[Rfam]
RNA sequence: AGUCACGAGUGCCAGCGUCAAGCCCCGGCUUGCUGGCCGGCAACCCGCAGACGUGUGGGGUGCCCCGGGUGAGGACUCGGCCCGACCACGGCGGUCCGGGCAAACGUCGAUC
Numbered sequence: 001a002g003u004c005a006c007g008a009g010u011g012c013c014a015g016c017g018u019c020a021a022g023c024c025c026c027g028g029c030u031u032g033c034u035g036g037c038c039g040g041c042a043a044c045c046c047g048c049a050g051a052c053g054u055g056u057g058g059g060g061u062g063c064c065c066c067g068g069g070u071g072a073g074g075a076c077u078c079g080g081c082c083c084g085a086c087c088a089c090g091g092c093g094g095u096c097c098g099g100g101c102a103a104a105c106g107u108c109g110a111u112c
Stems, first nucleotide, its partner, number of pairs: 001077004009038001011037006021030002039064003044060003048055002080101004084096004
Rfam assigns this 112-nucleotide sequence from Thermasporomyces composti to the family "SAM (S-adenosyl methionine) riboswitch aptamer".